[Rfam]
RNA sequence: AUGAGCUCUCAGCUUUGAGAACUGAAUUCCAUGGGUUUUAAUAUCAACUCCAACCCACGGAGCUCAGUUCUACAGCUUGGAUGCUUAUC
Numbered sequence: 001a002u003g004a005g006c007u008c009u010c011a012g013c014u015u016u017g018a019g020a021a022c023u024g025a026a027u028u029c030c031a032u033g034g035g036u037u038u039u040a041a042u043a044u045c046a047a048c049u050c051c052a053a054c055c056c057a058c059g060g061a062g063c064u065c066a067g068u069u070c071u072a073c074a075g076c077u078u079g080g081a082u083g084c085u086u087a088u089c
Stems, first nucleotide, its partner, number of pairs: 008080002011077003018071008033056004